[Rfam]
RNA sequence: AUCAACUUAAAUAACGAAAGCCCUGCCUCUCUUUCAUCCUUGCGGUUCCGUGACCGCGCCAGUGUAAAUAAGAAUCACUCACAAUGG
Numbered sequence: 001a002u003c004a005a006c007u008u009a010a011a012u013a014a015c016g017a018a019a020g021c022c023c024u025g026c027c028u029c030u031c032u033u034u035c036a037u038c039c040u041u042g043c044g045g046u047u048c049c050g051u052g053a054c055c056g057c058g059c060c061a062g063u064g065u066a067a068a069u070a071a072g073a074a075u076c077a078c079u080c081a082c083a084a085u086g087g
Base pairs, nucleotide, nucleotide: 034067036065039062040061041058042057043056044055045054046053047052
RNA: BsrC